[Rfam]
RNA: Small nucleolar RNA snR60/Z15/Z230/Z193/J17
RNA sequence: GGCAUCCAAAGGAUUAUAAUCCGAAAACAAUGCAUAGUUCAAAUCUAGAGUCCUUGCAGGCUCAAUGCGAACACCCAUUCCAUCUAAACGUCUUUCGCUCCUAUAUGAUGGAUCGC
Numbered sequence: 001g002g003c004a005u006c007c008a009a010a011g012g013a014u015u016a017u018a019a020u021c022c023g024a025a026a027a028c029a030a031u032g033c034a035u036a037g038u039u040c041a042a043a044u045c046u047a048g049a050g051u052c053c054u055u056g057c058a059g060g061c062u063c064a065a066u067g068c069g070a071a072c073a074c075c076c077a078u079u080c081c082a083u084c085u086a087a088a089c090g091u092c093u094u095u096c097g098c099u100c101c102u103a104u105a106u107g108a109u110g111g112a113u114c115g116c
Stems, first nucleotide, its partner, number of pairs: 004113005
Dot-bracket structure: ...(((((....................................................................................................)))))...